[Rfam]
RNA sequence: AUGCCAUGGUGUGGGCACUUCCUUAGCAUCUCCUUAUAUUAAUCCCAAGCCACACACAGAGAUUCUCCAGUUUGCUGAGAAAAAUGAGUAGGAGCAUUCCUGAUUGA
Dot-bracket structure: ..(.((..................................................((.(..........).))..........................))..)..
Numbered sequence: 001a002u003g004c005c006a007u008g009g010u011g012u013g014g015g016c017a018c019u020u021c022c023u024u025a026g027c028a029u030c031u032c033c034u035u036a037u038a039u040u041a042a043u044c045c046c047a048a049g050c051c052a053c054a055c056a057c058a059g060a061g062a063u064u065c066u067c068c069a070g071u072u073u074g075c076u077g078a079g080a081a082a083a084a085u086g087a088g089u090a091g092g093a094g095c096a097u098u099c100c101u102g103a104u105u106g107a
Stems, first nucleotide, its partner, number of pairs: 003105001005102002057074002060071001